Notes
Shown here is a 364-nucleotide RNA from Marinicella pacifica, a member of the family "Bacterial RNase P class A". Rfam links the family to the GO terms dimeric ribonuclease P complex, ribonuclease P activity and tRNA processing. The match comes from Rfam's covariance-model search (348 bits). Lineage of the source: Bacteria > Pseudomonadati > Pseudomonadota > Marinicellaceae > Marinicella.
[Rfam]
RNA sequence: UGAGUUGGUUGGGCAAUCGCGGGUACCUGUGAGUAUUCGAGGAAAGUCCGGGCUCCACAGGACACAGUGCCGGAUAACGUCCGGGAGGCGCGAGCCUACGGCCAGUGCAACAGAGAGCAGACCGCCCCUCACCUUACGUUAGGUGAGGGGUAAGGGUGAAAGGGUGCGGUAAGAGCGCACCGCGGCUUUGGUAACAAAGACGGCAGGGUAAACCCCACUGGGAGCAAGACCAAAUAGGAAAACAGAUGGUGUGGUCCGCACUUGUUUUCGGGUAGGUUGCUUGAGGGCGGCAGUAAUGCCGUUUCCAGAUGAAUGAUUGCCGCGAGAAAUCGUACAGAACCCGGCUUACAGACCAACUCAUUAU
Numbered sequence: 001u002g003a004g005u006u007g008g009u010u011g012g013g014c015a016a017u018c019g020c021g022g023g024u025a026c027c028u029g030u031g032a033g034u035a036u037u038c039g040a041g042g043a044a045a046g047u048c049c050g051g052g053c054u055c056c057a058c059a060g061g062a063c064a065c066a067g068u069g070c071c072g073g074a075u076a077a078c079g080u081c082c083g084g085g086a087g088g089c090g091c092g093a094g095c096c097u098a099c100g101g102c103c104a105g106u107g108c109a110a111c112a113g114a115g116a117g118c119a120g121a122c123c124g125c126c127c128c129u130c131a132c133c134u135u136a137c138g139u140u141a142g143g144u145g146a147g148g149g150g151u152a153a154g155g156g157u158g159a160a161a162g163g164g165u166g167c168g169g170u171a172a173g174a175g176c177g178c179a180c181c182g183c184g185g186c187u188u189u190g191g192u193a194a195c196a197a198a199g200a201c202g203g204c205a206g207g208g209u210a211a212a213c214c215c216c217a218c219u220g221g222g223a224g225c226a227a228g229a230c231c232a233a234a235u236a237g238g239a240a241a242a243c244a245g246a247u248g249g250u251g252u253g254g255u256c257c258g259c260a261c262u263u264g265u266u267u268u269c270g271g272g273u274a275g276g277u278u279g280c281u282u283g284a285g286g287g288c289g290g291c292a293g294u295a296a297u298g299c300c301g302u303u304u305c306c307a308g309a310u311g312a313a314u315g316a317u318u319g320c321c322g323c324g325a326g327a328a329a330u331c332g333u334a335c336a337g338a339a340c341c342c343g344g345c346u347u348a349c350a351g352a353c354c355a356a357c358u359c360a361u362u363a364u
Stems, first nucleotide, its partner, number of pairs: 001360010011349001012321007020039007044347003048344005053224004060257004065220005070084005085099001086097004100215002105213002107209002122155002124151011163181006182204001183202002186199005228278004238269006248262005285304008
Dot-bracket structure: ((((((((((((((((((.(((((((......)))))))....[[[.[[[[[((((...[[[[.((((((((((.....)))))(((((....)))).)((...((((.............(((((((((((((......)))))))))))..)).......((((((.......))))))(((.(((((....))))).)).)...))..)))))))))))))...((((......((((((....(((((.]]]]))))).)))))).....))))......((((((((....))))))))..........)))))))..................]]]]]]]].).))))))))))....